[Rfam]
RNA sequence: CAUGGCAAUUGAGGCUAAAAAAAAAAAAAACUCAUAAAAAGGGUGUUGUCAUCACCUACAUCUCUUUUGUACUACAGGGGAUUGUAGUUGAAAAACAACACAAGAUCU
Numbered sequence: 001c002a003u004g005g006c007a008a009u010u011g012a013g014g015c016u017a018a019a020a021a022a023a024a025a026a027a028a029a030a031c032u033c034a035u036a037a038a039a040a041g042g043g044u045g046u047u048g049u050c051a052u053c054a055c056c057u058a059c060a061u062c063u064c065u066u067u068u069g070u071a072c073u074a075c076a077g078g079g080g081a082u083u084g085u086a087g088u089u090g091a092a093a094a095a096c097a098a099c100a101c102a103a104g105a106u107c108u
Stems, first nucleotide, its partner, number of pairs: 043101006054089001056087004061081004
Notes
Shown here is a 108-nucleotide RNA from Musa troglodytarum, a member of the family "Small nucleolar RNA snoR97". The literature on the family includes a 2002 paper in Curr Biol by Marker et al., "Experimental RNomics: identification of 140 candidates for small non-messenger RNAs in the plant Arabidopsis thaliana". Pairs were carried over by alignment from the consensus structure, which was predicted with WAR.